[Rfam]
RNA sequence: CCUUGGGAGAGUUAUACAAACUGAAGUAGCAUUAAAAGCAAAACAGAGCUCAAUGAAUAAGGAA
Numbered sequence: 001c002c003u004u005g006g007g008a009g010a011g012u013u014a015u016a017c018a019a020a021c022u023g024a025a026g027u028a029g030c031a032u033u034a035a036a037a038g039c040a041a042a043a044c045a046g047a048g049c050u051c052a053a054u055g056a057a058u059a060a061g062g063a064a
Stems, first nucleotide, its partner, number of pairs: 001062005009051005021046003029039002
RNA: RAGATH-18 RNA